Shown here is a 126-nucleotide sequence from Rhynchospora breviuscula, a member of the family "MIR168 microRNA precursor family". On this family, see Rhoades et al., Cell 2002: "Prediction of plant microRNA targets". The source organism's lineage runs through Eukaryota, Mesangiospermae, Petrosaviidae, Poales and Rhynchospora.
[Rfam]
RNA sequence: GUCGCCACCGCCUCAAACUCGCUUGGUGCAGAUCGGGAACCCGCUUCGGAAUCUCUAAGAGCUUCUCUCUUAUCGGAUCGAGGUGGAUCCCGCCUUGCACCAAGUGAAUCUGAGUCGGGCAUGCGA
Numbered sequence: 001g002u003c004g005c006c007a008c009c010g011c012c013u014c015a016a017a018c019u020c021g022c023u024u025g026g027u028g029c030a031g032a033u034c035g036g037g038a039a040c041c042c043g044c045u046u047c048g049g050a051a052u053c054u055c056u057a058a059g060a061g062c063u064u065c066u067c068u069c070u071u072a073u074c075g076g077a078u079c080g081a082g083g084u085g086g087a088u089c090c091c092g093c094c095u096u097g098c099a100c101c102a103a104g105u106g107a108a109u110c111u112g113a114g115u116c117g118g119g120c121a122u123g124c125g126a
Stems, first nucleotide, its partner, number of pairs: 013113002017109001019107002023103009034092005040086002